Notes: A member of the RNA family "Plastid-rps12 3UTR RNA" from Hibiscus syriacus, 96 nucleotides long. The literature on the family includes a 2023 paper in Plant Commun by Richter et al., "Retrograde signaling in plants: A critical review focusing on the GUN pathway and beyond". Rfam classes the family as a cis-regulatory element. The organism belongs to Hibiscus, within Eukaryota. The match comes from Rfam's covariance-model search (80 bits). Plastid rpl20 is a non-coding RNA (ncRNA) recognised in plastids. It was found in the three prime untranslated region (3UTR) of rps12 gene, its 3UTR location sugest a role in transcript maduration.
RNA sequence: GGUUUUCGUUGGCGCAAAUCCAAUCUAGGGAUUUAUGAUGAGAAAAAAAUUCCCCAUUGGUAGCAAAUAUUUAUCAAUUAAGUGGGAAAAUCCUAU
Number, nucleotide and partner (000 for none) at each position: 001g000002g000003u000004u000005u000006u000007c000008g000009u023010u022011g021012g020013c000014g000015c000016a000017a000018a000019u000020c012021c011022a010023a009024u000025c000026u000027a000028g000029g000030g000031a000032u000033u000034u000035a000036u000037g000038a000039u000040g000041a000042g000043a000044a000045a000046a000047a000048a000049a000050u000051u000052c000053c086054c085055c084056a078057u077058u000059g075060g074061u073062a072063g071064c000065a000066a000067a000068u000069a000070u000071u063072u062073a061074u060075c059076a000077a057078u056079u000080a000081a000082g000083u000084g055085g054086g053087a000088a000089a000090a000091u000092c000093c000094u000095a000096u000